[Rfam]
RNA sequence: UAUAGCUCUACAGGGGCGACCUGAGAACACAUAUUGAGAUAUUGAACCACACUUGUCAAUUACAGAGAAAAAAGAAAAGUACCAAACAUGUGAUCUCAGAUUGCCCCUGUUGAACACUU
Numbered sequence: 001u002a003u004a005g006c007u008c009u010a011c012a013g014g015g016g017c018g019a020c021c022u023g024a025g026a027a028c029a030c031a032u033a034u035u036g037a038g039a040u041a042u043u044g045a046a047c048c049a050c051a052c053u054u055g056u057c058a059a060u061u062a063c064a065g066a067g068a069a070a071a072a073a074g075a076a077a078a079g080u081a082c083c084a085a086a087c088a089u090g091u092g093a094u095c096u097c098a099g100a101u102u103g104c105c106c107c108u109g110u111u112g113a114a115c116a117c118u119u
Stems, first nucleotide, its partner, number of pairs: 007113002011109004016104004023097004028092005
Dot-bracket structure: ......((..((((.((((...((((.(((((.......................................................))))).))))...)))).))))..))......